[Rfam]
RNA sequence: CCUCUUCACAUCCGGCGCGAAGCCUCUAUAUGAGGUUUCGCCGGCUUUGGCCGGAUAUGAUGAUAAAUUGCGCCGUGCAAUAGAUGCAGCGGACCCGGGGGCGGUACCCGGCGGCUCCACCAUCACCCGUCCCUUCUCGCAAGGGGCUACCCUGUUGUCGCAGGGGUGAUGACGGGGCCGAACUAGGAUCGACGUGUGUUGAAAAGCGGUGUUUUCAUCCGGGCUGAGUAACCCGUUCAAGGCUCAAAACUCAUAAGUGCCAACGACAACGAAGCACUUGCUCUCGCGGCGUAAUUCUAGGGCCUAACGGCCUGAAGUUACAAAGUCAGAACACGGUUGGGCCCACCGGGUAACAGAAGGGAUUCCA
Numbered sequence: 001c002c003u004c005u006u007c008a009c010a011u012c013c014g015g016c017g018c019g020a021a022g023c024c025u026c027u028a029u030a031u032g033a034g035g036u037u038u039c040g041c042c043g044g045c046u047u048u049g050g051c052c053g054g055a056u057a058u059g060a061u062g063a064u065a066a067a068u069u070g071c072g073c074c075g076u077g078c079a080a081u082a083g084a085u086g087c088a089g090c091g092g093a094c095c096c097g098g099g100g101g102c103g104g105u106a107c108c109c110g111g112c113g114g115c116u117c118c119a120c121c122a123u124c125a126c127c128c129g130u131c132c133c134u135u136c137u138c139g140c141a142a143g144g145g146g147c148u149a150c151c152c153u154g155u156u157g158u159c160g161c162a163g164g165g166g167u168g169a170u171g172a173c174g175g176g177g178c179c180g181a182a183c184u185a186g187g188a189u190c191g192a193c194g195u196g197u198g199u200u201g202a203a204a205a206g207c208g209g210u211g212u213u214u215u216c217a218u219c220c221g222g223g224c225u226g227a228g229u230a231a232c233c234c235g236u237u238c239a240a241g242g243c244u245c246a247a248a249a250c251u252c253a254u255a256a257g258u259g260c261c262a263a264c265g266a267c268a269a270c271g272a273a274g275c276a277c278u279u280g281c282u283c284u285c286g287c288g289g290c291g292u293a294a295u296u297c298u299a300g301g302g303c304c305u306a307a308c309g310g311c312c313u314g315a316a317g318u319u320a321c322a323a324a325g326u327c328a329g330a331a332c333a334c335g336g337u338u339g340g341g342c343c344c345a346c347c348g349g350g351u352a353a354c355a356g357a358a359g360g361g362a363u364u365c366c367a
Stems, first nucleotide, its partner, number of pairs: 041054004059219005070212007085198003089195003095111005112180007220235004225246003334348004339366003344361001
Dot-bracket structure: ........................................((((......))))....(((((......(((((((........(((.(((...(((((.......)))))(((((((.......................................................)))))))............)))))).......)))))))..)))))((((.[[[....))))........]]].......................................................................................((((.[[[..[))))............]..]]].